[Rfam]
Source information
The family of this 200-nucleotide RNA from Capra hircus is "Small nucleolar RNA SNORA73 family". On this family, see Enright et al., RNA 1996: "5'ETS rRNA processing facilitated by four small RNAs: U14, E3, U17, and U3". Rfam links the family to the GO terms nucleolus and RNA processing. By type it is an H/ACA-box small nucleolar RNA. From the family's description: U17 (SNORA73A and SNORA73B) also known as E1 belongs to the H/ACA class of small nucleolar RNAs (snoRNAs). Vertebrate U17 is intron-encoded and ranges in length from 200-230 nucleotides, longer than most snoRNAs. It is one of the most abundant snoRNAs in human cells and is essential for the cleavage of pre-rRNA within the 5' external transcribed spacer (ETS). This cleavage leads to the formation of 18S rRNA. Regions of the U17 RNA are complementary to rRNA and act as guides for RNA/RNA interactions, although these regions do not seem to be well conserved between organisms.

RNA sequence: CCAGUGUGGAUACCCCAGGAGGUCACUCUCCCCAGGCUCUAAGUGGUGUAUGGGAGCGCAGGGCUCUGUCCCGUGAUGUGCAAUCCCUUUCCACAAUGUUGGAGGUGAAGCUGGGCAUUGCAUCUGCACCUGCAUAUUCCUAUAGCUUCUCAGAGUCCUAUGGACAAUGACUGAGAAGACAAAACAUGCAGGAAGCAUCU
Numbered sequence: 001c002c003a004g005u006g007u008g009g010a011u012a013c014c015c016c017a018g019g020a021g022g023u024c025a026c027u028c029u030c031c032c033c034a035g036g037c038u039c040u041a042a043g044u045g046g047u048g049u050a051u052g053g054g055a056g057c058g059c060a061g062g063g064c065u066c067u068g069u070c071c072c073g074u075g076a077u078g079u080g081c082a083a084u085c086c087c088u089u090u091c092c093a094c095a096a097u098g099u100u101g102g103a104g105g106u107g108a109a110g111c112u113g114g115g116c117a118u119u120g121c122a123u124c125u126g127c128a129c130c131u132g133c134a135u136a137u138u139c140c141u142a143u144a145g146c147u148u149c150u151c152a153g154a155g156u157c158c159u160a161u162g163g164a165c166a167a168u169g170a171c172u173g174a175g176a177a178g179a180c181a182a183a184a185c186a187u188g189c190a191g192g193a194a195g196c197a198u199c200u
Base pairs, nucleotide, nucleotide: 001102002101003100004099005098006097007096012040014036015035018029019028020027021026043094044093045092046091052087053086054085055084056081058079059078060077061074129192130191131190132189133188134187135186146178147177148176149175150174151173155165156164157163158162